[Rfam]
RNA sequence: CUGUGCUGAGGUAGUUGUUUGUACAGUUUGAGGGUCUGUGAUUCCGCCCGGUUCUGGAGCUAACUGUACAGGCCACUGCCUUGCCCAG
Dot-bracket structure: (((.((.((((((((.(((((((((((....((((..........))))..((....))...))))))))))).)))))))))).)))